[Rfam]
Shown here is a 159-nucleotide sequence from Desulfosporosinus fructosivorans, a member of the family "glmS glucosamine-6-phosphate activated ribozyme aptamer".
Lineage of the source: Bacteria > Bacillota > Clostridia > Desulfitobacteriaceae > Desulfosporosinus.
The match comes from Rfam's covariance-model search (107 bits).
Its family is annotated with regulation of gene expression and catalytic activity in the Gene Ontology.
RNA sequence: AAUAUAAUUUGAGCGCCAGGGCCUUAAAGUUUCAUACUUAAGGUCGACGAGGAAGAGGGUUAUCGAAAUUUUCGGCGGAUCCCUCUCGGUGGCUUGUCACCGUAAGCUUGCUUAAAACCGAAGAGUAAUUUUCGGGACAAGGAGUAAGCUGACAAGACA
Numbered sequence: 001a002a003u004a005u006a007a008u009u010u011g012a013g014c015g016c017c018a019g020g021g022c023c024u025u026a027a028a029g030u031u032u033c034a035u036a037c038u039u040a041a042g043g044u045c046g047a048c049g050a051g052g053a054a055g056a057g058g059g060u061u062a063u064c065g066a067a068a069u070u071u072u073c074g075g076c077g078g079a080u081c082c083c084u085c086u087c088g089g090u091g092g093c094u095u096g097u098c099a100c101c102g103u104a105a106g107c108u109u110g111c112u113u114a115a116a117a118c119c120g121a122a123g124a125g126u127a128a129u130u131u132u133c134g135g136g137a138c139a140a141g142g143a144g145u146a147a148g149c150u151g152a153c154a155a156g157a158c159a
Stems, first nucleotide, its partner, number of pairs: 020045008054086005063075004087102005106149006118135007